This 89-nucleotide RNA sequence from Phaedon cochleariae belongs to the Rfam family "mir-2944 microRNA precursor family". Gene Ontology terms of the family: miRNA-mediated post-transcriptional gene silencing and RISC complex.

RNA sequence: AAGGGAAUCUGGUUUGAAGGAACUCCUGGUGUGAUAUGUAGUUUCGUAUCAUAUCACAGCCAGUAGUUACCUACGAAAUGGGUUCCUCA
Numbered sequence: 001a002a003g004g005g006a007a008u009c010u011g012g013u014u015u016g017a018a019g020g021a022a023c024u025c026c027u028g029g030u031g032u033g034a035u036a037u038g039u040a041g042u043u044u045c046g047u048a049u050c051a052u053a054u055c056a057c058a059g060c061c062a063g064u065a066g067u068u069a070c071c072u073a074c075g076a077a078a079u080g081g082g083u084u085c086c087u088c089a
Stems, first nucleotide, its partner, number of pairs: 003087009018072003021068004026063002028060001030058009